[Rfam]
The family of this 58-nucleotide RNA from Streptococcus pyogenes is "Lacto-rpoB RNA".
NCBI's taxonomy places the organism under Bacteria, Bacilli, Streptococcus, Streptococcus pyogenes, Streptococcus pyogenes serotype M1.

RNA sequence: AUUUGUCGUCCAAUCUAGCUGAAAUAUUGUCCAGUUAGGAAGAACAGCAGUUAAAUCA
Numbered sequence: 001a002u003u004u005g006u007c008g009u010c011c012a013a014u015c016u017a018g019c020u021g022a023a024a025u026a027u028u029g030u031c032c033a034g035u036u037a038g039g040a041a042g043a044a045c046a047g048c049a050g051u052u053a054a055a056u057c058a
Stems, first nucleotide, its partner, number of pairs: 008045002014039008